[Rfam]
RNA sequence: UCAUCAGGAUUGGGAGACACUGUGGCUUUGCCCACAGGGCCGAAGGAGCAACCGCCCCGGUAAACUCUCAGGCAAAAGGACCGGUCCUGACAC
Numbered sequence: 001u002c003a004u005c006a007g008g009a010u011u012g013g014g015a016g017a018c019a020c021u022g023u024g025g026c027u028u029u030g031c032c033c034a035c036a037g038g039g040c041c042g043a044a045g046g047a048g049c050a051a052c053c054g055c056c057c058c059g060g061u062a063a064a065c066u067c068u069c070a071g072g073c074a075a076a077a078g079g080a081c082c083g084g085u086c087c088u089g090a091c092a093c
Base pairs, nucleotide, nucleotide: 006088007087008086009085010084011083012082013081020037021036022035023034039073040072041071042069043068046067047066048065052060053059
Shown here is a 93-nucleotide RNA from Roseicitreum antarcticum, a member of the family "Glycine riboswitch aptamer". It scores 63 bits against the family's covariance model. Lineage of the source: Bacteria > Pseudomonadota > Rhodobacterales > Paracoccaceae > Roseicitreum. About the family: This family represents the bacterial glycine riboswitch.